Rfam assigns this 80-nucleotide sequence from Clostridium bornimense to the family "ZMP/ZTP riboswitch aptamer (pfl RNA motif)".
Nucleotides: 080
Base pairs, nucleotide, nucleotide: 006049007048008047009046010045011044012043015040017068018067019066020065021064024037025036026035027034059073060072061071
Number, partner (000 for none) and nucleotide at each position: 001000u002000u003000a004000g005000a006049g007048u008047u009046a010045u011044a012043u013000g014000a015040c016000u017068g018067a019066c020065g021064g022000a023000a024037g025036u026035g027034g028000a029000a030000u031000u032000a033000a034027c035026c036025a037024c038000a039000u040015g041000a042000a043012g044011u045010a046009u047008a048007a049006c050000a051000a052000a053000u054000u055000a056000u057000a058000a059073g060072c061071c062000g063000a064021c065020c066019g067018u068017c069000u070000g071061g072060g073059c074000a075000a076000a077000g078000u079000c080000c
A search with the family's covariance model found it, with a score of 56 bits. Taxonomically the source falls in Clostridium (Bacteria, Bacillati, Eubacteriales, Clostridiaceae).